[Rfam]
Rfam assigns this 288-nucleotide RNA from Papio anubis to the family "Mason-Pfizer monkey virus packaging signal". The match comes from Rfam's covariance-model search (86 bits). A reference for the family is Mustafa et al. (2004), "Mutational analysis of the predicted secondary RNA structure of the Mason-Pfizer monkey virus packaging signal", Virus Res. The source organism's lineage runs through Eukaryota, Craniata, Sarcopterygii, Cercopithecinae and Papio. Gene Ontology term of the family: viral genome packaging.
RNA sequence: UUCCCUCUAACAGGACCUGAAAACGAAAAGGACUCGCGGAGGAAGAGGAUCAAAGGACGGUCGACCCCUGCUAACAAAGACAAAAGAAAUUAAAUCCGGAUCAAUGCCGGAACCGCCGCCAGAAUCGGUUGUGCGGGCGUGUCCGAAAUGGGACCACAAGAAUUAAGUCAGCAUCAAAUCUAUUCAUAUGUAGAAUAGACAAUUAAAAAGAGGCUUUGAAGAUACGAGGAGUAAAGGUUAAAGGUAAUGAUUUGUUUAAAUUUUGAUUUUGUAAAGAUAUCAGUUCUG
Numbered sequence: 001u002u003c004c005c006u007c008u009a010a011c012a013g014g015a016c017c018u019g020a021a022a023a024c025g026a027a028a029a030g031g032a033c034u035c036g037c038g039g040a041g042g043a044a045g046a047g048g049a050u051c052a053a054a055g056g057a058c059g060g061u062c063g064a065c066c067c068c069u070g071c072u073a074a075c076a077a078a079g080a081c082a083a084a085a086g087a088a089a090u091u092a093a094a095u096c097c098g099g100a101u102c103a104a105u106g107c108c109g110g111a112a113c114c115g116c117c118g119c120c121a122g123a124a125u126c127g128g129u130u131g132u133g134c135g136g137g138c139g140u141g142u143c144c145g146a147a148a149u150g151g152g153a154c155c156a157c158a159a160g161a162a163u164u165a166a167g168u169c170a171g172c173a174u175c176a177a178a179u180c181u182a183u184u185c186a187u188a189u190g191u192a193g194a195a196u197a198g199a200c201a202a203u204u205a206a207a208a209a210g211a212g213g214c215u216u217u218g219a220a221g222a223u224a225c226g227a228g229g230a231g232u233a234a235a236g237g238u239u240a241a242a243g244g245u246a247a248u249g250a251u252u253u254g255u256u257u258a259a260a261u262u263u264u265g266a267u268u269u270u271g272u273a274a275a276g277a278u279a280u281c282a283g284u285u286c287u288g
Stems, first nucleotide, its partner, number of pairs: 004031003037047001091131003095128002101124001102122001105118002108115002139157002142152004164218003167214003225265003230262003235253006274287001276285003